Rfam assigns this 116-nucleotide sequence from Hibiscus syriacus to the family "MIR396 microRNA precursor family". Gene Ontology terms of the family: miRNA-mediated post-transcriptional gene silencing and RISC complex. Pairs were carried over by alignment from the consensus structure, which was predicted with WAR. It scores 85 bits against the family's covariance model.
RNA sequence: GAUCAUGCUUUUCCACAGCUUUCUUGAACUUUCUUUUUGUACAACAAAAUAUUAGGUGAUAACCAUUAUCAUAUGCAUGUAUGAAAGCUCAAGAAAGCUGUGGAAGAACAUGAUGG
Number, nucleotide and partner (000 for none) at each position: 001g000002a000003u113004c112005a111006u110007g109008c000009u000010u000011u000012u000013c103014c102015a101016c000017a099018g098019c097020u096021u095022u094023c000024u092025u091026g090027a089028a000029c087030u086031u085032u084033c083034u000035u000036u000037u000038u000039g000040u000041a000042c000043a000044a000045c000046a000047a000048a000049a000050u000051a000052u000053u000054a000055g000056g000057u000058g000059a000060u000061a000062a000063c000064c000065a000066u000067u000068a000069u000070c000071a000072u000073a000074u000075g000076c000077a000078u000079g000080u000081a000082u000083g033084a032085a031086a030087g029088c000089u027090c026091a025092a024093g000094a022095a021096a020097g019098c018099u017100g000101u015102g014103g013104a000105a000106g000107a000108a000109c007110a006111u005112g004113a003114u000115g000116g000